A member of the RNA family "Small nucleolar RNA SNORA11" from Myotis myotis, 128 nucleotides long. The family's consensus secondary structure was predicted with RNAalifold. Rfam links the family to the GO terms nucleolus and RNA processing. The family's RNA type in Rfam is H/ACA-box small nucleolar RNA. Rfam describes the family as follows. U107 (SNORA11) is a member of the H/ACA class of snoRNAs that guide the sites of modification of uridines to pseudouridines. This snoRNA was identified by RT-PCR from blood cells and its expression confirmed by Northern blot analysis. There is no predicted target for this guide snRNA.
RNA sequence: UGGAUGUGGAGAGAGCAGAGUGCCUGAAAAAUGGCUCCUCUGUGUAUAGCACAUCCAACAGCAAGUUGGGCUUACUCUCACAGGUGGCAGGACACCAUGACCUUCCUGUGACAUUACGCCCUAUAUAA
Dot-bracket structure: .(((((((....(.((((((.(((........)))..)))))).)....)))))))............((.(........((.(.(.((((...)).)).).).....)).......).)).......